The family of this 82-nucleotide sequence from Amborella trichopoda is "Small nucleolar RNA R21".
Rfam links the family to the GO terms RNA processing and nucleolus.
It scores 58 bits against the family's covariance model.
Rfam 15.1 lists 472 matches to the family in 146 species.
A reference for the family is Barneche et al. (2001), "Identification of 66 box C/D snoRNAs in Arabidopsis thaliana: extensive gene duplications generated multiple isoforms predicting new ribosomal RNA 2'-O-methylation sites", J Mol Biol.
The organism belongs to Amborella, within Eukaryota.

RNA sequence: CAUCUCUAUGAUGAAUAAUUUUUUAGAAUUAAAAGUAGUGGACUGAUUUCUGAUGAGAAACAUAUCAUAUUUCUGAGGGAUG
Numbered sequence: 001c002a003u004c005u006c007u008a009u010g011a012u013g014a015a016u017a018a019u020u021u022u023u024u025a026g027a028a029u030u031a032a033a034a035g036u037a038g039u040g041g042a043c044u045g046a047u048u049u050c051u052g053a054u055g056a057g058a059a060a061c062a063u064a065u066c067a068u069a070u071u072u073c074u075g076a077g078g079g080a081u082g
Stems, first nucleotide, its partner, number of pairs: 001082006